[Rfam]
RNA sequence: UAAGAAAAAGCCAAACCUGUUGAGAAGCAGGGACGGAAAGCUACGGGUCUUAAUGAGAUAGCCGAGUUGCACAUU
Numbered sequence: 001u002a003a004g005a006a007a008a009a010g011c012c013a014a015a016c017c018u019g020u021u022g023a024g025a026a027g028c029a030g031g032g033a034c035g036g037a038a039a040g041c042u043a044c045g046g047g048u049c050u051u052a053a054u055g056a057g058a059u060a061g062c063c064g065a066g067u068u069g070c071a072c073a074u075u
Base pairs, nucleotide, nucleotide: 011036012035016031017030018029019028020027021026034061039068040067041066042065044064045063046062047059048058049057
Rfam assigns this 75-nucleotide RNA from Desulfamplus magnetovallimortis to the family "c-di-GMP-I-GGC riboswitch aptamer". On this family, see Weinberg et al., Proc Natl Acad Sci U S A 2017: "Bioinformatic analysis of riboswitch structures uncovers variant classes with altered ligand specificity". A search with the family's covariance model found it, with a score of 66 bits. Pairs were carried over by alignment from the consensus structure, which is taken from published work.